[Rfam]
RNA sequence: ACACAAAAAAAAAUUAUUUUUCGUAUAUCCUUAAUGAUAUGGUUUAAGGGCAAUACAUAGAAACCACAAAUUUCUUACUGCGAAAAAUAUGCUUCUUUAG
Numbered sequence: 001a002c003a004c005a006a007a008a009a010a011a012a013a014u015u016a017u018u019u020u021u022c023g024u025a026u027a028u029c030c031u032u033a034a035u036g037a038u039a040u041g042g043u044u045u046a047a048g049g050g051c052a053a054u055a056c057a058u059a060g061a062a063a064c065c066a067c068a069a070a071u072u073u074c075u076u077a078c079u080g081c082g083a084a085a086a087a088u089a090u091g092c093u094u095c096u097u098u099a100g
Base pairs, nucleotide, nucleotide: 018086019085020084021083022082023081024080025079029049030048031047032046033045034044057076059075060074061073062072063071
Shown here is a 100-nucleotide sequence from Priestia veravalensis, a member of the family "Purine riboswitch aptamer". The base pairs follow the family's consensus structure, which is taken from published work. It scores 53 bits against the family's covariance model. The organism belongs to Priestia, within Bacteria. The family has 133 seed sequences and 4,097 matches in Rfam 15.1.